[Rfam]
RNA sequence: GGCAGGAUCGGCCCCAGAGACGGCCGAGGCGCCGCCUGUGAGGGGGGCUCCGGUUCCUCUA
Number, nucleotide and partner (000 for none) at each position: 001g000002g000003c000004a000005g000006g000007a000008u000009c000010g049011g048012c047013c046014c045015c044016a000017g000018a000019g000020a000021c034022g033023g032024c031025c000026g000027a000028g000029g000030c000031g024032c023033c022034g021035c000036c000037u000038g000039u000040g000041a000042g000043g000044g015045g014046g013047g012048c011049u010050c000051c000052g000053g000054u000055u000056c000057c000058u000059c000060u000061a000
Shown here is a 61-nucleotide RNA sequence from Pyrobaculum arsenaticum, a member of the family "Pyrobaculum sRNA 209".
The sequence is in the family's curated seed alignment.
Gene Ontology term of the family: RNA processing.
The source organism's lineage runs through Archaea, Thermoprotei, Thermoproteaceae, Pyrobaculum and Pyrobaculum arsenaticum.
Pairs were carried over by alignment from the consensus structure.
Non canonical pseudouridylation guide sRNA features. Predicted to target 16S U8 in Pyrobaculum.